[Rfam]
RNA: SAM-I/IV (S-adenosyl methionine) riboswitch aptamer
Organism: Cellulophaga lytica
RNA sequence: CUUAAUUAUCAAGAAUCUCAAAAAAAAGAGAUAGCAACCUGCAAUAACGAGCAAGGUGCUAAAAAAGGAUAAGCCAAUACUUUGGAAAAAAUGUUAAUUUA
Numbered sequence: 001c002u003u004a005a006u007u008a009u010c011a012a013g014a015a016u017c018u019c020a021a022a023a024a025a026a027a028g029a030g031a032u033a034g035c036a037a038c039c040u041g042c043a044a045u046a047a048c049g050a051g052c053a054a055g056g057u058g059c060u061a062a063a064a065a066a067g068g069a070u071a072a073g074c075c076a077a078u079a080c081u082u083u084g085g086a087a088a089a090a091a092u093g094u095u096a097a098u099u100u101a
Base pairs, nucleotide, nucleotide: 006072007071008070009069010068015032016031017030018029019028033060034059035058038056039055040054041052042051045097047095074085075084076083077082